RNA: Small nucleolar RNA Z107/R87
RNA sequence: GGUCACAGUGAUGACUCAGGAAAUUCAAGCUCAACAGACCGGAAUGCAGGCCUCUCUUUUUCUAGAGAGUCAUGCGUGUCGACCUUCCCGCUGACCUGAGUGAUC
Numbered sequence: 001g002g003u004c005a006c007a008g009u010g011a012u013g014a015c016u017c018a019g020g021a022a023a024u025u026c027a028a029g030c031u032c033a034a035c036a037g038a039c040c041g042g043a044a045u046g047c048a049g050g051c052c053u054c055u056c057u058u059u060u061u062c063u064a065g066a067g068a069g070u071c072a073u074g075c076g077u078g079u080c081g082a083c084c085u086u087c088c089c090g091c092u093g094a095c096c097u098g099a100g101u102g103a104u105c
Stems, first nucleotide, its partner, number of pairs: 001105006